[Rfam]
RNA sequence: GCCCCCUGAUGACCCCAUGCGUGUCACAUGACCCCCUGGGGGGGGGUCCCAGCCCUGCGUUCUGCUCGGCCAAAGCCCCCCCCCCCAAAUGGGAGUGAUCACAGCAAUGAGGCUGAGGGC
Numbered sequence: 001g002c003c004c005c006c007u008g009a010u011g012a013c014c015c016c017a018u019g020c021g022u023g024u025c026a027c028a029u030g031a032c033c034c035c036c037u038g039g040g041g042g043g044g045g046g047u048c049c050c051a052g053c054c055c056u057g058c059g060u061u062c063u064g065c066u067c068g069g070c071c072a073a074a075g076c077c078c079c080c081c082c083c084c085c086c087a088a089a090u091g092g093g094a095g096u097g098a099u100c101a102c103a104g105c106a107a108u109g110a111g112g113c114u115g116a117g118g119g120c
Stems, first nucleotide, its partner, number of pairs: 001120004039084007